[Rfam]
RNA: Alphaproteobacterial ar14
RNA sequence: GAAAUUCAGGUUUCCUCCUCCUCCCAGAAACCUGAUGGUUUCAAAACGACCUCCUCCCCGUUUUGAGACGUUCAAUAAGCCCACCGGACCUCCUCCCCCGGUGGGCUUUUUGC
Numbered sequence: 001g002a003a004a005u006u007c008a009g010g011u012u013u014c015c016u017c018c019u020c021c022u023c024c025c026a027g028a029a030a031c032c033u034g035a036u037g038g039u040u041u042c043a044a045a046a047c048g049a050c051c052u053c054c055u056c057c058c059c060g061u062u063u064u065g066a067g068a069c070g071u072u073c074a075a076u077a078a079g080c081c082c083a084c085c086g087g088a089c090c091u092c093c094u095c096c097c098c099c100g101g102u103g104g105g106c107u108u109u110u111u112g113c
Base pairs, nucleotide, nucleotide: 007034008033009032010031011030012029013028014027038069039068040067041066042065043064044063045062046061047060077108078107079106080105081104082103083102084101085100086099087098